[Rfam]
RNA sequence: CACGCGGCCCGGGCCCCUCUGACGACGGAUGACCUUCGUGAUGUCGGACCGCACCU
Numbered sequence: 001c002a003c004g005c006g007g008c009c010c011g012g013g014c015c016c017c018u019c020u021g022a023c024g025a026c027g028g029a030u031g032a033c034c035u036u037c038g039u040g041a042u043g044u045c046g047g048a049c050c051g052c053a054c055c056u
Stems, first nucleotide, its partner, number of pairs: 006050002009047004022039004027034002
A member of the RNA family "terC RNA" from Roseivivax sediminis, 56 nucleotides long.
The source organism's lineage runs through Bacteria, Pseudomonadati, Rhodobacterales, Roseobacteraceae and Roseivivax.
The family's consensus secondary structure is taken from published work.
By type it is a cis-regulatory element.